The record is a 144-nucleotide RNA sequence from Stappia sediminis, which matches "FMN riboswitch aptamer (RFN element)" in Rfam. Gene Ontology term of the family: FMN binding. The source organism's lineage runs through Bacteria, Pseudomonadota, Alphaproteobacteria, Stappiaceae and Stappia.

RNA sequence: UUCCGUUCUCAGGGCGGGGUGAAAGUCCCCACCGGCGGUGAGCAGUCAUGCUGCGAGCCCGCGAGCGCCUUCCUUAUGGAAGGGUCAGCAGACCAGGUGCAACUCCUGGGCCGACGGUUACAGUCCGGAUGGAAGAGAACGUGC
Number, nucleotide and partner (000 for none) at each position: 001u000002u000003c000004c141005g140006u139007u138008c137009u136010c135011a000012g000013g000014g000015c000016g000017g029018g028019g027020u000021g000022a000023a000024a000025g000026u000027c019028c018029c017030c000031a124032c123033c113034g112035g062036c061037g060038g059039u000040g000041a000042g000043c000044a000045g000046u000047c000048a000049u000050g000051c000052u000053g000054c000055g000056a000057g111058c110059c038060c037061g036062c035063g000064a000065g089066c088067g000068c000069c000070u000071u000072c000073c000074u000075u000076a000077u000078g000079g000080a000081a000082g000083g000084g000085u000086c000087a000088g066089c065090a000091g000092a000093c109094c108095a107096g106097g105098u000099g000100c000101a000102a000103c000104u000105c097106c096107u095108g094109g093110g058111c057112c034113g033114a000115c127116g126117g125118u000119u000120a000121c000122a000123g032124u031125c117126c116127g115128g000129a000130u000131g000132g000133a000134a000135g010136a009137g008138a007139a006140c005141g004142u000143g000144c000